[Rfam]
RNA sequence: UAAAUUAAAGGAAAUGGCUAUCUUCCUUCUACAAACCGCCACUAACGGCUGAUGAUACCUACGUUACC
Numbered sequence: 001u002a003a004a005u006u007a008a009a010g011g012a013a014a015u016g017g018c019u020a021u022c023u024u025c026c027u028u029c030u031a032c033a034a035a036c037c038g039c040c041a042c043u044a045a046c047g048g049c050u051g052a053u054g055a056u057a058c059c060u061a062c063g064u065u066a067c068c
Stems, first nucleotide, its partner, number of pairs: 010026004016059002021054001038049003

The family of this 68-nucleotide RNA from Acinetobacter gerneri is "Fluoride riboswitch aptamer (crcB RNA motif)". NCBI's taxonomy places the organism under Bacteria, Pseudomonadota, Moraxellaceae, Acinetobacter, Acinetobacter gerneri. The literature on the family includes a 2012 paper in Science by Baker et al., "Widespread genetic switches and toxicity resistance proteins for fluoride". A search with the family's covariance model found it, with a score of 42 bits.